[Rfam]
RNA sequence: AUAAUGAUACUUCUGUCAAGUCACAGUCGGAGCGUUAAAAGCGUCGCAGGCAAUGAUGACAGUCCGGGCGGAGCCGGGAAGGUGAAAUUCUUAUGG
Dot-bracket structure: ...........(((((((......................................))))))(((.(((...))).)))(((.......))))...
Numbered sequence: 001a002u003a004a005u006g007a008u009a010c011u012u013c014u015g016u017c018a019a020g021u022c023a024c025a026g027u028c029g030g031a032g033c034g035u036u037a038a039a040a041g042c043g044u045c046g047c048a049g050g051c052a053a054u055g056a057u058g059a060c061a062g063u064c065c066g067g068g069c070g071g072a073g074c075c076g077g078g079a080a081g082g083u084g085a086a087a088u089u090c091u092u093a094u095g096g
Stems, first nucleotide, its partner, number of pairs: 012093001013062006063079003067075003080092003